Rfam assigns this 79-nucleotide sequence from Ictidomys tridecemlineatus to the family "Small nucleolar RNA U105B". The source organism's lineage runs through Eukaryota, Deuterostomia, Sciuromorpha, Marmotini and Ictidomys. Gene Ontology terms of the family: nucleolus and RNA processing. The family's RNA type in Rfam is C/D-box small nucleolar RNA. Pairs were carried over by alignment from the consensus structure, which was predicted with WAR. Clan: SNORD105 clan. The literature on the family includes a 2006 paper in Nucleic Acids Res by Yang et al., "snoSeeker: an advanced computational package for screening of guide and orphan snoRNA genes in the human genome".
[Rfam]
RNA sequence: CCUUGUGCGACUGAUGACAGCACAGCUGCUGAGACUCCGUGAUUGCUCAUCUCAAAGUAAACGCUCUGAUGCACUGCCC
Numbered sequence: 001c002c003u004u005g006u007g008c009g010a011c012u013g014a015u016g017a018c019a020g021c022a023c024a025g026c027u028g029c030u031g032a033g034a035c036u037c038c039g040u041g042a043u044u045g046c047u048c049a050u051c052u053c054a055a056a057g058u059a060a061a062c063g064c065u066c067u068g069a070u071g072c073a074c075u076g077c078c079c
Stems, first nucleotide, its partner, number of pairs: 005074005011020003030049004